RNA sequence: GUGCAAAUGAUGUAAACUUCAAUUCACUGAAUAACAUGAUGCUUCCAAAGGAACCACUGAUGCAC
Numbered sequence: 001g002u003g004c005a006a007a008u009g010a011u012g013u014a015a016a017c018u019u020c021a022a023u024u025c026a027c028u029g030a031a032u033a034a035c036a037u038g039a040u041g042c043u044u045c046c047a048a049a050g051g052a053a054c055c056a057c058u059g060a061u062g063c064a065c
Stems, first nucleotide, its partner, number of pairs: 001065005
Small nucleolar RNA SNORD42: a 65-nucleotide RNA sequence from Sapayoa aenigma.
The match comes from Rfam's covariance-model search (58 bits).
It is annotated as a C/D-box small nucleolar RNA.
From the family's description: snoRNA U42 is found in intron 3 of the ribosomal protein L23a (RPL23a) gene in humans and is also present in mice.
The literature on the family includes a 2002 paper in Mol Cell Biol by Galardi et al., "Purified box C/D snoRNPs are able to reproduce site-specific 2'-O-methylation of target RNA in vitro".
Rfam 15.1 lists 848 matches to the family in 572 species.